[Rfam]
RNA sequence: GAUAGCACUUGGCAAACCUAUCGAAAGAUAGAGACGCAAAACUUCCGGCCUACGUUCGGAAAAUAUGGUAGCGGGGCUACCUUA
Numbered sequence: 001g002a003u004a005g006c007a008c009u010u011g012g013c014a015a016a017c018c019u020a021u022c023g024a025a026a027g028a029u030a031g032a033g034a035c036g037c038a039a040a041a042c043u044u045c046c047g048g049c050c051u052a053c054g055u056u057c058g059g060a061a062a063a064u065a066u067g068g069u070a071g072c073g074g075g076g077c078u079a080c081c082u083u084a
Base pairs, nucleotide, nucleotide: 012037013036018031019030020029021028022027040078042076043075045074046073047072048069049068050067055063056062
The record is an 84-nucleotide RNA sequence from Candidatus Magnetomorum sp. HK-1, which matches "c-di-GMP-I riboswitch aptamer" in Rfam. NCBI's taxonomy places the organism under Bacteria, Thermodesulfobacteriota, Desulfobacterales, Candidatus Magnetomoraceae, Candidatus Magnetomorum. The base pairs follow the family's consensus structure, which is taken from published work.